[Rfam]
RNA: THF (Tetrahydrofolate) riboswitch aptamer
RNA sequence: CGCAGAGUAGGCAUACAGGCGUCAAGUGUCGGAUGAACAGGGAGUUGACAUCCGGACGAAGGGGAAAUCCCCGCGGCCUGUAUCCCGCAUCCCGCUGCA
Numbered sequence: 001c002g003c004a005g006a007g008u009a010g011g012c013a014u015a016c017a018g019g020c021g022u023c024a025a026g027u028g029u030c031g032g033a034u035g036a037a038c039a040g041g042g043a044g045u046u047g048a049c050a051u052c053c054g055g056a057c058g059a060a061g062g063g064g065a066a067a068u069c070c071c072c073g074c075g076g077c078c079u080g081u082a083u084c085c086c087g088c089a090u091c092c093c094g095c096u097g098c099a
Base pairs, nucleotide, nucleotide: 002098003097004096005095010086011085013083014082015081016080017079018078019077020075021074022073026057027056029055030054031053032052033051034050035049040092041091042090044088061072062071063070064069
Dot-bracket structure: .((((....((.((((((((((...((.(((((((....[[[.[....)))))))))...((((....))))))).))))))).)).].]]]..)))).